[Rfam]
RNA sequence: GGGGCUGGCUGCGACACUGGUGUUCGUCACGGUCUUCAAAACCGCUCGAGAGGCGCGUGCCGUCUCUGGUAGGUUCGAUUCCUACACAGUCCC
Numbered sequence: 001g002g003g004g005c006u007g008g009c010u011g012c013g014a015c016a017c018u019g020g021u022g023u024u025c026g027u028c029a030c031g032g033u034c035u036u037c038a039a040a041a042c043c044g045c046u047c048g049a050g051a052g053g054c055g056c057g058u059g060c061c062g063u064c065u066c067u068g069g070u071a072g073g074u075u076c077g078a079u080u081c082c083u084a085c086a087c088a089g090u091c092c093c
Stems, first nucleotide, its partner, number of pairs: 001093007008085001011027004016023002030044004049067005070084004